[Rfam]
RNA: Iron response element I
Organism: Myotis myotis
RNA sequence: CUGUCUCUUGCUUCAACAAUGUUUGAACAGAACAA
Numbered sequence: 001c002u003g004u005c006u007c008u009u010g011c012u013u014c015a016a017c018a019a020u021g022u023u024u025g026a027a028c029a030g031a032a033c034a035a
Stems, first nucleotide, its partner, number of pairs: 002034003006031003010028001012027005017021001